Shown here is a 63-nucleotide RNA, a member of the family "RAGATH-18 RNA". It is one of the family's seed sequences. The base pairs follow the family's consensus structure, which is taken from published work. About the family: Actinobacteria, Firmicutes, Fusobacteria, Thermotogae (1 example). By type it is a small RNA.

[Rfam]
Nucleotides: 063
Stems, first nucleotide, its partner, number of pairs: 001061004009050005022045003030038003
Number, partner (000 for none) and nucleotide at each position: 001061c002060c003059c004058u005000c006000a007000g008000a009050g010049u011048g012047u013046u014000a015000u016000a017000a018000g019000a020000a021000a022045c023044c024043a025000a026000a027000g028000u029000a030038g031037c032036u033000u034000u035000u036032a037031g038030c039000a040000a041000a042000a043024u044023g045022g046013g047012a048011c049010a050009c051000g052000u053000u054000g055000a056000a057000c058004a059003g060002g061001g062000a063000a